[Rfam]
RNA sequence: GCCCUGCCACCGCCCGAGGUUCCCAAGUACUCGUUGGCAGGGACGGGGGACCCAGAAGUGGGCGCUGUAUCCAGCGUCCUUGGGGUGAAGCCGCAUGACCCGAGGGUCAUCGGCCGGGUGUUCUCCUACCCGAACCCGACAGCUAACCUCGCAGGCGUCAUGGAGAGAACAU
Numbered sequence: 001g002c003c004c005u006g007c008c009a010c011c012g013c014c015c016g017a018g019g020u021u022c023c024c025a026a027g028u029a030c031u032c033g034u035u036g037g038c039a040g041g042g043a044c045g046g047g048g049g050a051c052c053c054a055g056a057a058g059u060g061g062g063c064g065c066u067g068u069a070u071c072c073a074g075c076g077u078c079c080u081u082g083g084g085g086u087g088a089a090g091c092c093g094c095a096u097g098a099c100c101c102g103a104g105g106g107u108c109a110u111c112g113g114c115c116g117g118g119u120g121u122u123c124u125c126c127u128a129c130c131c132g133a134a135c136c137c138g139a140c141a142g143c144u145a146a147c148c149u150c151g152c153a154g155g156c157g158u159c160a161u162g163g164a165g166a167g168a169a170c171a172u
Stems, first nucleotide, its partner, number of pairs: 002042008044151005053082002083137003091113003116131004
Dot-bracket structure: .((((((((.........................)))))))).(((((....((..........................))(((.....(((.................)))..((((........))))...))).........))))).....................
The record is a 172-nucleotide RNA sequence from Sanguibacter gelidistatuariae, which matches "c-di-AMP riboswitch aptamer (ydaO/yuaA leader)" in Rfam. A search with the family's covariance model found it, with a score of 69 bits.